Record summary: Repression of heat shock gene expression (ROSE) element: a 127-nucleotide RNA from Bradyrhizobium sp. ORS 278. The match comes from Rfam's covariance-model search (58 bits). On this family, see Nocker et al., Nucleic Acids Res 2001: "A mRNA-based thermosensor controls expression of rhizobial heat shock genes". The base pairs follow the family's consensus structure, which is taken from published work. The organism belongs to Bradyrhizobium, within Bacteria. From the family's description: This family represents a 5' UTR cis-regulatory element found in heat shock mRNAs and is known as the ROSE (repression of heat shock gene expression) element. The ROSE element is a negative regulator of heat shock gene expression. The secondary structure is thought to be regulated by temperature. This regulation blocks access to the ribosome binding site under normal conditions. Rfam classes the family as an RNA thermoregulator.
RNA sequence: CCGGGUGCCUUCAGGGCCCGGCUGUGCUUUGGGCGCUGACCGGUUGUUGGGUCCUCAGAACGAAGCCUGCAUCGGCCCGGCGCUCCUUCGUAUCCAUCUUGCUCCUAGGAGGACUUGGCUAUGAGGA
Numbered sequence: 001c002c003g004g005g006u007g008c009c010u011u012c013a014g015g016g017c018c019c020g021g022c023u024g025u026g027c028u029u030u031g032g033g034c035g036c037u038g039a040c041c042g043g044u045u046g047u048u049g050g051g052u053c054c055u056c057a058g059a060a061c062g063a064a065g066c067c068u069g070c071a072u073c074g075g076c077c078c079g080g081c082g083c084u085c086c087u088u089c090g091u092a093u094c095c096a097u098c099u100u101g102c103u104c105c106u107a108g109g110a111g112g113a114c115u116u117g118g119c120u121a122u123g124a125g126g127a
Stems, first nucleotide, its partner, number of pairs: 001021006008015002031085008087125006094118003099113002102111003